[Rfam]
RNA: Small nucleolar RNA SNORD111
Organism: Pycnonotus jocosus
RNA sequence: UAGCCUGAAGUGAUGAGUAUGGUUCAUGUCUCUUCUCUGAGAUUUAUACUGGAGAUAGUCCAAAGACUCUGAUCAGGCAG
Numbered sequence: 001u002a003g004c005c006u007g008a009a010g011u012g013a014u015g016a017g018u019a020u021g022g023u024u025c026a027u028g029u030c031u032c033u034u035c036u037c038u039g040a041g042a043u044u045u046a047u048a049c050u051g052g053a054g055a056u057a058g059u060c061c062a063a064a065g066a067c068u069c070u071g072a073u074c075a076g077g078c079a080g
Base pairs, nucleotide, nucleotide: 001080003078004077005076